[Rfam]
RNA sequence: UUCUUAUUUGGAGCAGGUGGAGGGACUGGCCCGAUGAAACCCGGCAACCCGUUAAGGUGUACGACGCCUUAAGACAGGGUGCUAAUUCCUGCAGGUACAUUCGUUUCCUGGGAGAUAAGAA
Numbered sequence: 001u002u003c004u005u006a007u008u009u010g011g012a013g014c015a016g017g018u019g020g021a022g023g024g025a026c027u028g029g030c031c032c033g034a035u036g037a038a039a040c041c042c043g044g045c046a047a048c049c050c051g052u053u054a055a056g057g058u059g060u061a062c063g064a065c066g067c068c069u070u071a072a073g074a075c076a077g078g079g080u081g082c083u084a085a086u087u088c089c090u091g092c093a094g095g096u097a098c099a100u101u102c103g104u105u106u107c108c109u110g111g112g113a114g115a116u117a118a119g120a121a
Stems, first nucleotide, its partner, number of pairs: 001121008013042001016041003022032003026091001028089002043083004048079002052073002087113001092110004097105001
The family of this 121-nucleotide RNA from Ammoniphilus sp. CFH 90114 is "SAM riboswitch aptamer (S box leader)". Its family is annotated with regulation of gene expression in the Gene Ontology. The family's consensus secondary structure is taken from published work. It scores 75 bits against the family's covariance model.